[Rfam]
RNA sequence: AAUAUGCAAGGGCAAACUUGUGGAAACACAAGGACGCAAAGCUACGAGUCUAAGGUUCUAUCCAGAACUAUGAUAGUCGGGUUACCAUU
Number, nucleotide and partner (000 for none) at each position: 001a000002a000003u000004a000005u000006g000007c000008a000009a000010g000011g000012g037013c036014a000015a000016a000017c032018u031019u030020g029021u028022g027023g000024a000025a000026a000027c022028a021029c020030a019031a018032g017033g000034a000035c000036g013037c012038a000039a000040a083041g082042c081043u080044a000045c079046g078047a077048g074049u073050c072051u000052a000053a000054g000055g068056u067057u066058c065059u000060a000061u000062c000063c000064a000065g058066a057067a056068c055069u000070a000071u000072g050073a049074u048075a000076g000077u047078c046079g045080g043081g042082u041083u040084a000085c000086c000087a000088u000089u000
The family of this 89-nucleotide sequence from Litchfieldia salsa is "c-di-GMP-I riboswitch aptamer". A reference for the family is Weinberg et al. (2007), "Identification of 22 candidate structured RNAs in bacteria using the CMfinder comparative genomics pipeline", Nucleic Acids Res. The organism belongs to Litchfieldia, within Bacteria. Pairs were carried over by alignment from the consensus structure, which is taken from published work. From the family's description: GEMM was predicted in a large-scale screen for bacterial structured RNA regulatory elements. It scores 84 bits against the family's covariance model.